The family of this 91-nucleotide RNA sequence from Candidatus Magnetoglobus multicellularis is "c-di-GMP-I riboswitch aptamer". The source organism's lineage runs through Bacteria, Pseudomonadati, Desulfobacteria, Desulfobacterales and Candidatus Magnetoglobus multicellularis. Gene Ontology term of the family: cyclic-di-GMP binding. Rfam describes the family as follows. GEMM was predicted in a large-scale screen for bacterial structured RNA regulatory elements. The match comes from Rfam's covariance-model search (62 bits).
[Rfam]
RNA sequence: CGUAGAAAAGGGCAAGUUAGUCGAAAGAUUAAUACGCAAAGCAUACGGCCUAAGUCCUUUUUUUAAGGGAUAUGGUGGCAGUGUUACCUAC
Numbered sequence: 001c002g003u004a005g006a007a008a009a010g011g012g013c014a015a016g017u018u019a020g021u022c023g024a025a026a027g028a029u030u031a032a033u034a035c036g037c038a039a040a041g042c043a044u045a046c047g048g049c050c051u052a053a054g055u056c057c058u059u060u061u062u063u064u065a066a067g068g069g070a071u072a073u074g075g076u077g078g079c080a081g082u083g084u085u086a087c088c089u090a091c
Stems, first nucleotide, its partner, number of pairs: 012037002017032006040085004047079001048076003055070006